[Rfam]
RNA sequence: AAAAUAAAAAAAAAAUAAUUUUCAGAAUUUUUUUUUUUUAAAAAAAGAAAUAAACCUAUCGCGACGAAAUUUCGUCGGCAUAGGUCUAUGCCGACAAAAUUUGCCGGAUUAGGUUUGCGCCGACGAAAUUUGAGUUUUUCGUCGGCAU
Numbered sequence: 001a002a003a004a005u006a007a008a009a010a011a012a013a014a015a016u017a018a019u020u021u022u023c024a025g026a027a028u029u030u031u032u033u034u035u036u037u038u039u040a041a042a043a044a045a046a047g048a049a050a051u052a053a054a055c056c057u058a059u060c061g062c063g064a065c066g067a068a069a070u071u072u073c074g075u076c077g078g079c080a081u082a083g084g085u086c087u088a089u090g091c092c093g094a095c096a097a098a099a100u101u102u103g104c105c106g107g108a109u110u111a112g113g114u115u116u117g118c119g120c121c122g123a124c125g126a127a128a129u130u131u132g133a134g135u136u137u138u139u140c141g142u143c144g145g146c147a148u
Stems, first nucleotide, its partner, number of pairs: 006037011062144002065141004071127009
Dot-bracket structure: .....(((((((((((..........)))))))))))........................((.((((..(((((((((.......................................)))))))))..........)))).))....
Annotation:
Small nucleolar RNA snoR111: a 148-nucleotide RNA from Prunus dulcis. The family's RNA type in Rfam is H/ACA-box small nucleolar RNA. Its family is annotated with RNA processing and nucleolus in the Gene Ontology. On this family, see Marker et al., Curr Biol 2002: "Experimental RNomics: identification of 140 candidates for small non-messenger RNAs in the plant Arabidopsis thaliana".